RNA: Antisense RNA which regulates isiA expression
Organism: Nostoc sp. PCC 7107
Nucleotides: 178
Base pairs, nucleotide, nucleotide: 136175137174138173139172140171141170144169145168146167147166148165
Number, partner (000 for none) and nucleotide at each position: 001000a002000a003000u004000a005000a006000c007000u008000a009000a010000a011000a012000a013000u014000u015000g016000u017000g018000c019000u020000g021000g022000g023000g024000u025000u026000g027000a028000g029000a030000g031000u032000a033000g034000g035000g036000u037000u038000a039000g040000u041000a042000a043000c044000c045000a046000g047000a048000c049000g050000u051000a052000c053000a054000u055000c056000u057000c058000c059000u060000a061000a062000a063000u064000g065000a066000u067000g068000a069000u070000c071000a072000u073000a074000a075000a076000u077000g078000c079000c080000c081000c082000c083000a084000a085000a086000a087000a088000a089000c090000a091000u092000a093000g094000c095000u096000u097000u098000u099000a100000g101000g102000a103000c104000u105000a106000a107000u108000a109000a110000g111000a112000a113000u114000g115000c116000u117000c118000c119000u120000a121000a122000a123000c124000c125000u126000a127000g128000a129000a130000u131000a132000a133000u134000u135000a136175a137174g138173u139172g140171a141170u142000g143000u144169c145168c146167u147166a148165a149000a150000a151000u152000u153000a154000a155000a156000c157000u158000c159000a160000a161000u162000u163000g164000u165148u166147u167146a168145g169144g170141g171140u172139c173138a174137u175136u176000c177000c178000a